[Rfam]
RNA sequence: GUGCGCCCAACAGGGACCUGGAAACGAGGGAUCCGUGGGAGGGAAGGAGGACGGCCAAAGGACGGGUCGACGCUACCAAAGACAAGGAAGUACUCUUCCGAUCACCGCGGGAACCUGCCGCGUCUGAAUCGGAAGUAAGUGACGCGUCGAAAUGGGACAAGAAUUAAGUAGCAUCAAAUUUAUGGUAGGACAAUUAAAAGAGGCUUUAAAAAAAAAAAAAAGUGGGGAUACGAGCAGUUAAAGGUUAAGGUUAAUGAUUUGUUAAAUUUUUUGAUUUUUGUAAAGACAUUGCCCUU
Numbered sequence: 001g002u003g004c005g006c007c008c009a010a011c012a013g014g015g016a017c018c019u020g021g022a023a024a025c026g027a028g029g030g031a032u033c034c035g036u037g038g039g040a041g042g043g044a045a046g047g048a049g050g051a052c053g054g055c056c057a058a059a060g061g062a063c064g065g066g067u068c069g070a071c072g073c074u075a076c077c078a079a080a081g082a083c084a085a086g087g088a089a090g091u092a093c094u095c096u097u098c099c100g101a102u103c104a105c106c107g108c109g110g111g112a113a114c115c116u117g118c119c120g121c122g123u124c125u126g127a128a129u130c131g132g133a134a135g136u137a138a139g140u141g142a143c144g145c146g147u148c149g150a151a152a153u154g155g156g157a158c159a160a161g162a163a164u165u166a167a168g169u170a171g172c173a174u175c176a177a178a179u180u181u182a183u184g185g186u187a188g189g190a191c192a193a194u195u196a197a198a199a200g201a202g203g204c205u206u207u208a209a210a211a212a213a214a215a216a217a218a219a220a221a222g223u224g225g226g227g228a229u230a231c232g233a234g235c236a237g238u239u240a241a242a243g244g245u246u247a248a249g250g251u252u253a254a255u256g257a258u259u260u261g262u263u264a265a266a267u268u269u270u271u272u273g274a275u276u277u278u279u280g281u282a283a284a285g286a287c288a289u290u291g292c293c294c295u296u
Stems, first nucleotide, its partner, number of pairs: 006030003035052002092136003097133002102128001103126002106122005144158001147156002165208003168204002231273004236268003242260006282296002285293001287291001
Shown here is a 296-nucleotide RNA from Cercocebus atys, a member of the family "Mason-Pfizer monkey virus packaging signal". This family represents a group of sequences that are related to the Mason-Pfizer monkey virus (MPMV) packaging signal. The packaging signal is located in the 5' UTR and is required for specific RNA encapsidation. Its family is annotated with viral genome packaging in the Gene Ontology. A reference for the family is Mustafa et al. (2004), "Mutational analysis of the predicted secondary RNA structure of the Mason-Pfizer monkey virus packaging signal", Virus Res. The family's RNA type in Rfam is cis-regulatory element. It scores 126 bits against the family's covariance model.